[Rfam]
RNA sequence: UCUCGCAGCCCUCCUUGGGCGUUUCCUCCCUAGACUUCGGGCCGUUCGCGAGAGCGGCCUUUUUUUUGGCCCGC
Dot-bracket structure: .......((((.....))))...................((((((((....))))))))...............
Numbered sequence: 001u002c003u004c005g006c007a008g009c010c011c012u013c014c015u016u017g018g019g020c021g022u023u024u025c026c027u028c029c030c031u032a033g034a035c036u037u038c039g040g041g042c043c044g045u046u047c048g049c050g051a052g053a054g055c056g057g058c059c060u061u062u063u064u065u066u067u068g069g070c071c072c073g074c
Stems, first nucleotide, its partner, number of pairs: 008020004040059008